[Rfam]
RNA sequence: UGAUGGUGAUAAGGAUAAUUUCUGAGCAUGCCCUUGAAUCUCACCCAAGAUUGGUAAAGAUUUUCUCCAUCUUUCUGUUUGAAACUCAAUAUCUCACUCCUCAAUCA
Numbered sequence: 001u002g003a004u005g006g007u008g009a010u011a012a013g014g015a016u017a018a019u020u021u022c023u024g025a026g027c028a029u030g031c032c033c034u035u036g037a038a039u040c041u042c043a044c045c046c047a048a049g050a051u052u053g054g055u056a057a058a059g060a061u062u063u064u065c066u067c068c069a070u071c072u073u074u075c076u077g078u079u080u081g082a083a084a085c086u087c088a089a090u091a092u093c094u095c096a097c098u099c100c101u102c103a104a105u106c107a
Base pairs, nucleotide, nucleotide: 001107003105004104005102006101057074058073
Source information
Plant small nucleolar RNA R71: a 107-nucleotide RNA sequence from Capsicum annuum. Rfam classes the family as a C/D-box small nucleolar RNA. Rfam links the family to the GO terms RNA processing and nucleolus. A reference for the family is Brown et al. (2003), "Plant snoRNAs: functional evolution and new modes of gene expression", Trends Plant Sci. Lineage of the source: Eukaryota > eudicotyledons > Pentapetalae > asterids > Capsicum. The base pairs follow the family's consensus structure, which was predicted with PFOLD.